[Rfam]
RNA sequence: AGCGCGAUGGGGUCGACGCCGCGGGCCACCACCAGGUAGUCGCGGAUGGCGAUGCCGUGCCGGUUCUC
Numbered sequence: 001a002g003c004g005c006g007a008u009g010g011g012g013u014c015g016a017c018g019c020c021g022c023g024g025g026c027c028a029c030c031a032c033c034a035g036g037u038a039g040u041c042g043c044g045g046a047u048g049g050c051g052a053u054g055c056c057g058u059g060c061c062g063g064u065u066c067u068c
Stems, first nucleotide, its partner, number of pairs: 005062002008059002011030003015027001017025001035056004040052004

About this RNA: ASdes TB sRNA: a 68-nucleotide sequence from Mycolicibacterium fallax. For this family Rfam cites "Identification of small RNAs in Mycobacterium tuberculosis" (Arnvig and Young, Mol Microbiol, 2009).